[Rfam]
RNA: Small nucleolar RNA Z107/R87
RNA sequence: GAUUGUGGUGGUAACUUGGAGAAUUAAAGCUCCAUAGACCGUAUUGUAGUUUAUCUCUCACAAUAGAGAUUGCAUUAGCAUGUCGAUAAUCCUACUGAACUGAACGAUC
Numbered sequence: 001g002a003u004u005g006u007g008g009u010g011g012u013a014a015c016u017u018g019g020a021g022a023a024u025u026a027a028a029g030c031u032c033c034a035u036a037g038a039c040c041g042u043a044u045u046g047u048a049g050u051u052u053a054u055c056u057c058u059c060a061c062a063a064u065a066g067a068g069a070u071u072g073c074a075u076u077a078g079c080a081u082g083u084c085g086a087u088a089a090u091c092c093u094a095c096u097g098a099a100c101u102g103a104a105c106g107a108u109c
Stems, first nucleotide, its partner, number of pairs: 001109006